[Rfam]
RNA sequence: GAGAGUACACUGAUAGUCCUUGGACAAUUUGCCAUUAUUCUUUUGCUUUGUACUAGCAUAUGAAAGAAAGUAAUCCCUGUGUUUUUUAUCUGUCUCUGUAGCAGCCAAAUUGAAUUGGGGAAUGCAUCU
Numbered sequence: 001g002a003g004a005g006u007a008c009a010c011u012g013a014u015a016g017u018c019c020u021u022g023g024a025c026a027a028u029u030u031g032c033c034a035u036u037a038u039u040c041u042u043u044u045g046c047u048u049u050g051u052a053c054u055a056g057c058a059u060a061u062g063a064a065a066g067a068a069a070g071u072a073a074u075c076c077c078u079g080u081g082u083u084u085u086u087u088a089u090c091u092g093u094c095u096c097u098g099u100a101g102c103a104g105c106c107a108a109a110u111u112g113a114a115u116u117g118g119g120g121a122a123u124g125c126a127u128c129u
Stems, first nucleotide, its partner, number of pairs: 003061001005059002008056001011052002014050003019045001022040003026036003074121006082112001085109003090104004

Rfam assigns this 129-nucleotide RNA from Castor canadensis to the family "Small nucleolar RNA SNORA31". Lineage of the source: Eukaryota > Vertebrata > Gnathostomata > Eutheria > Castor. The match comes from Rfam's covariance-model search (80 bits). ACA31 (SNORA31) belongs to the H/ACA class of snoRNAs which are thought to guide the sites of modification of uridines to pseudouridines. ACA31 is predicted to guide the pseudouridylation of U3713 in 28S rRNA and U218 in 18S rRNA. This family includes the mouse homologue snoMBI-161.